Rfam assigns this 66-nucleotide RNA sequence from Klebsiella pneumoniae to the family "int-alpA RNA". It scores 46 bits against the family's covariance model. Acidobacteria (1 example), Planctomycetes (1 example), Proteobacteria. The family's consensus secondary structure is taken from published work.
RNA sequence: ACAGAGGCUAUCCCGACGGGGAGAAAAGCGGCUACGCCUUGCCGCCUGCCUCGACCCAUUCCAAGG
Number, nucleotide and partner (000 for none) at each position: 001a000002c053003a000004g052005a051006g050007g049008c048009u000010a000011u022012c021013c020014c019015g000016a000017c000018g000019g014020g013021g012022a011023g000024a000025a000026a000027a000028g045029c044030g043031g042032c041033u000034a000035c000036g000037c066038c065039u064040u063041g032042c031043c030044g029045c028046c000047u000048g008049c007050c006051u005052c004053g002054a000055c000056c000057c000058a000059u000060u000061c000062c000063a040064a039065g038066g037